[Rfam]
RNA: Purine riboswitch aptamer
RNA sequence: UUUGAAUAAUGAUUAUAAACUCAUAUAUCCUUGAUAAUGGGAUCAAGGGUUUCUACGAGGCAACCGUAAUUGCUUCUCUAUGAGCCAGGGAUGGUUUAUA
Numbered sequence: 001u002u003u004g005a006a007u008a009a010u011g012a013u014u015a016u017a018a019a020c021u022c023a024u025a026u027a028u029c030c031u032u033g034a035u036a037a038u039g040g041g042a043u044c045a046a047g048g049g050u051u052u053c054u055a056c057g058a059g060g061c062a063a064c065c066g067u068a069a070u071u072g073c074u075u076c077u078c079u080a081u082g083a084g085c086c087a088g089g090g091a092u093g094g095u096u097u098a099u100a
Stems, first nucleotide, its partner, number of pairs: 020084006029048007057076007